[Rfam]
RNA: M-box riboswitch aptamer (ykoK leader)
RNA sequence: AAGGCACCUCGUUCGGUGAGGUGUCUGCGCGGACACAGGCCACUGACCCCACGACGUCGAGAGACGCCCAGGUUCAGGACAGGUCUCCCCGACUUAAGGGGUGACCCCAAGUGGCUUCCCCCGUCCGGGGAUUACGCCGUGCAGUGCCAAAGCUCUGACGAGUCGGGGUGAACC
Numbered sequence: 001a002a003g004g005c006a007c008c009u010c011g012u013u014c015g016g017u018g019a020g021g022u023g024u025c026u027g028c029g030c031g032g033a034c035a036c037a038g039g040c041c042a043c044u045g046a047c048c049c050c051a052c053g054a055c056g057u058c059g060a061g062a063g064a065c066g067c068c069c070a071g072g073u074u075c076a077g078g079a080c081a082g083g084u085c086u087c088c089c090c091g092a093c094u095u096a097a098g099g100g101g102u103g104a105c106c107c108c109a110a111g112u113g114g115c116u117u118c119c120c121c122c123g124u125c126c127g128g129g130g131a132u133u134a135c136g137c138c139g140u141g142c143a144g145u146g147c148c149a150a151a152g153c154u155c156u157g158a159c160g161a162g163u164c165g166g167g168g169u170g171a172a173c174c
Base pairs, nucleotide, nucleotide: 005170006169007168008167009166010165011159012158013097015154016153017152020148021147022146025144026143027142028141029140030139031138032137039115040114041113042112043111045075046074048072049071055066056065057064058063082106083105084104085103088100089099090098117131118130119129120128121127